[Rfam]
The family of this 57-nucleotide RNA sequence from Passiflora arbelaezii is "Plastid-psbA-3 3UTR RNA".
Plastid psbA-3 is a non-coding RNA (ncRNA) present in plastids. It was identified in inverted repeat sequences in the 3 prime untranslate region (3UTR) of photosystem II quinone-binding protein (psbA).
Pairs were carried over by alignment from the consensus structure, which was predicted with LocARNA.
RNA sequence: AAAGGAGCAAUAGCCAAUUUCUUAUUAUAUCAAGAGGAUUGCUAUUGCUCCUUAUAU
Numbered sequence: 001a002a003a004g005g006a007g008c009a010a011u012a013g014c015c016a017a018u019u020u021c022u023u024a025u026u027a028u029a030u031c032a033a034g035a036g037g038a039u040u041g042c043u044a045u046u047g048c049u050c051c052u053u054a055u056a057u
Base pairs, nucleotide, nucleotide: 002053003052004051005050006049007048008047009046010045011044012043013042014041019036020035021034022033023032